[Rfam]
About this RNA: This 108-nucleotide RNA sequence from Allobosea sp. RAC05 belongs to the Rfam family "EcpR1". For this family Rfam cites "Deep sequencing uncovers numerous small RNAs on all four replicons of the plant pathogen Agrobacterium tumefaciens" (Wilms et al., RNA Biol, 2012). The source organism's lineage runs through Bacteria, Pseudomonadati, Alphaproteobacteria, Hyphomicrobiales and Allobosea. Rfam describes the family as follows. Perviously named SmelC291, SmrC10, or Sra33.
Nucleotides: 108
Base pairs, nucleotide, nucleotide: 003049004048005047006046008044009043010042014037015036016035017034018033019032052103053102054101055100056099057098058097059096060095061094062093
Number, partner (000 for none) and nucleotide at each position: 001000a002000c003049g004048c005047c006046c007000c008044u009043c010042g011000g012000c013000u014037c015036u016035c017034a018033g019032g020000u021000c022000c023000g024000c025000c026000g027000c028000a029000u030000c031000u032019c033018c034017u035016g036015g037014g038000a039000a040000c041000c042010c043009g044008g045000a046006g047005g048004g049003c050000u051000c052103g053102g054101c055100c056099g057098g058097u059096c060095g061094g062093u063000u064000g065000c066000g067000g068000a069000c070000a071000u072000u073000c074000u075000g076000g077000c078000c079000u080000c081000c082000u083000c084000a085000g086000a087000a088000c089000c090000g091000c092000c093062g094061c095060c096059g097058g098057c099056c100055g101054g102053c103052c104000a105000c106000c107000u108000c
Pairs were carried over by alignment from the consensus structure, which was predicted with WAR. Its family is annotated with negative regulation of cell cycle, regulation of translation in response to stress and mRNA binding in the Gene Ontology.